Rfam assigns this 304-nucleotide sequence from Vigna radiata to the family "Plant signal recognition particle RNA". A search with the family's covariance model found it, with a score of 238 bits. NCBI's taxonomy places the organism under Eukaryota, Gunneridae, Fabales, Papilionoideae, Vigna radiata.
RNA sequence: GCCGAGCUGGGUAACGUCAGCUUGUGACCUUAGUGGGGGCGUCAAGGUGAUUGAAUAAGGCUAUGGCUUGCUAAGCUGGUCUGGAGGUUGCAUGUUGCUGGCUUGCCCACUCCAAGUUAGGAGUUGGUCCAUGGGACCUUUGCGAAGGCAUGGGUUUCCUGGUUCCUAGACUGGAGGGAACAGCGUGAGGCUGGUUUCACAGAGCAGCGACCACCUCCGGCUCUUGACAGUGGAGGGAUAACAGGCUGCUGCACCUCCAUUCCUAAUCGAGCUUGGUGAGCCUUGCUCUUGAACAAUCACUUUU
Numbered sequence: 001g002c003c004g005a006g007c008u009g010g011g012u013a014a015c016g017u018c019a020g021c022u023u024g025u026g027a028c029c030u031u032a033g034u035g036g037g038g039g040c041g042u043c044a045a046g047g048u049g050a051u052u053g054a055a056u057a058a059g060g061c062u063a064u065g066g067c068u069u070g071c072u073a074a075g076c077u078g079g080u081c082u083g084g085a086g087g088u089u090g091c092a093u094g095u096u097g098c099u100g101g102c103u104u105g106c107c108c109a110c111u112c113c114a115a116g117u118u119a120g121g122a123g124u125u126g127g128u129c130c131a132u133g134g135g136a137c138c139u140u141u142g143c144g145a146a147g148g149c150a151u152g153g154g155u156u157u158c159c160u161g162g163u164u165c166c167u168a169g170a171c172u173g174g175a176g177g178g179a180a181c182a183g184c185g186u187g188a189g190g191c192u193g194g195u196u197u198c199a200c201a202g203a204g205c206a207g208c209g210a211c212c213a214c215c216u217c218c219g220g221c222u223c224u225u226g227a228c229a230g231u232g233g234a235g236g237g238a239u240a241a242c243a244g245g246c247u248g249c250u251g252c253a254c255c256u257c258c259a260u261u262c263c264u265a266a267u268c269g270a271g272c273u274u275g276g277u278g279a280g281c282c283u284u285g286c287u288c289u290u291g292a293a294c295a296a297u298c299a300c301u302u303u304u
Stems, first nucleotide, its partner, number of pairs: 001040003004023007028037003044303010056291005061285001063283001065281001068279010078263002082259005089253002099248007107237002110235005116228009126165002129162003133158007141150003172219006184209003191202003